[Rfam]
This 111-nucleotide sequence from Thalassobius vesicularis belongs to the Rfam family "TPP riboswitch aptamer (THI element)".
Gene Ontology term of the family: thiamine pyrophosphate binding.
Rfam's curators write: Vitamin B(1) in its active form thiamin pyrophosphate (TPP) is an essential coenzyme that is synthesised by coupling of pyrimidine and thiazole moieties in bacteria.
The match comes from Rfam's covariance-model search (70 bits).
RNA sequence: GCGCGUACCUCGGGGUGCCCUGCGACAGAAGCGCAGGGCUGAGAUGCAUCCUGCGAACCCGUUGAACCUGAACCGGUUAAGACCGGCGGAGGGAAGGUCUGGAUAUGCUCC
Numbered sequence: 001g002c003g004c005g006u007a008c009c010u011c012g013g014g015g016u017g018c019c020c021u022g023c024g025a026c027a028g029a030a031g032c033g034c035a036g037g038g039c040u041g042a043g044a045u046g047c048a049u050c051c052u053g054c055g056a057a058c059c060c061g062u063u064g065a066a067c068c069u070g071a072a073c074c075g076g077u078u079a080a081g082a083c084c085g086g087c088g089g090a091g092g093g094a095a096g097g098u099c100u101g102g103a104u105a106u107g108c109u110c111c
Base pairs, nucleotide, nucleotide: 007098008097009096010095011061012060013059014058016055017039018038019037020036021035022034023033024032046054047053048052067092068091069090073086074085075084076083